[Rfam]
RNA sequence: CAUCUGUCAUGGAUAGCCGAGUGGGAGGUCAGCCGCCAAGUCAGUGACCUUGCUACGGUCUUGGCCAGCGGGUACUGGUGCCCGGUACGAAUCCUGGGGUUGUCGAUUGUACUCGCGUGAGUAAUCCGCGAUCGCUACACGGCAUUAAGCAAUGGAAGUGACCCUUGAGGGAAGCAAUUCUGCAGAGACACUUCCACCCUGGGAUGGCGUCAUCGGAUUACACCGUCCUGUUACAGGGAAUCUGGCUGUUGGGCUGAACGACCACUUUU
Numbered sequence: 001c002a003u004c005u006g007u008c009a010u011g012g013a014u015a016g017c018c019g020a021g022u023g024g025g026a027g028g029u030c031a032g033c034c035g036c037c038a039a040g041u042c043a044g045u046g047a048c049c050u051u052g053c054u055a056c057g058g059u060c061u062u063g064g065c066c067a068g069c070g071g072g073u074a075c076u077g078g079u080g081c082c083c084g085g086u087a088c089g090a091a092u093c094c095u096g097g098g099g100u101u102g103u104c105g106a107u108u109g110u111a112c113u114c115g116c117g118u119g120a121g122u123a124a125u126c127c128g129c130g131a132u133c134g135c136u137a138c139a140c141g142g143c144a145u146u147a148a149g150c151a152a153u154g155g156a157a158g159u160g161a162c163c164c165u166u167g168a169g170g171g172a173a174g175c176a177a178u179u180c181u182g183c184a185g186a187g188a189c190a191c192u193u194c195c196a197c198c199c200u201g202g203g204a205u206g207g208c209g210u211c212a213u214c215g216g217a218u219u220a221c222a223c224c225g226u227c228c229u230g231u232u233a234c235a236g237g238g239a240a241u242c243u244g245g246c247u248g249u250u251g252g253g254c255u256g257a258a259c260g261a262c263c264a265c266u267u268u269u
Stems, first nucleotide, its partner, number of pairs: 002014003019267006027259001029257005037248001039247006048238003057066003069230003074226002077224004082216005087210003091205009101144001104142001108139004113131005119126002145149001153196007164187003171180003
Record summary:
Shown here is a 269-nucleotide sequence from Aspergillus calidoustus, a member of the family "Fungal signal recognition particle RNA". Clan: SRP clan. It is annotated as a non-coding RNA gene. NCBI's taxonomy places the organism under Eukaryota, Ascomycota, Eurotiomycetidae, Aspergillus, Aspergillus subgen. Nidulantes. Rfam links the family to the GO terms SRP-dependent cotranslational protein targeting to membrane, signal sequence recognition, signal recognition particle, plasma membrane targeting and signal recognition particle, endoplasmic reticulum targeting. The match comes from Rfam's covariance-model search (169 bits).